[Rfam]
RNA sequence: CCCUGUAUCGAAAGUGAUUCUGGUAUUAACUGUUGCCUGAUCAUUGAUACUGCAGGGAGAGCAAACUGAAAGCCUUUCCCGUGUUUGUUGGGAACCCUCGUCCCUGUCAGACCUCGUAGCUUUCAGACA
Numbered sequence: 001c002c003c004u005g006u007a008u009c010g011a012a013a014g015u016g017a018u019u020c021u022g023g024u025a026u027u028a029a030c031u032g033u034u035g036c037c038u039g040a041u042c043a044u045u046g047a048u049a050c051u052g053c054a055g056g057g058a059g060a061g062c063a064a065a066c067u068g069a070a071a072g073c074c075u076u077u078c079c080c081g082u083g084u085u086u087g088u089u090g091g092g093a094a095c096c097c098u099c100g101u102c103c104c105u106g107u108c109a110g111a112c113c114u115c116g117u118a119g120c121u122u123u124c125a126g127a128c129a
Stems, first nucleotide, its partner, number of pairs: 001057007013045007022037004067125007083112005088106001090104003
RNA: Small nucleolar RNA SNORA71
Organism: Acipenser ruthenus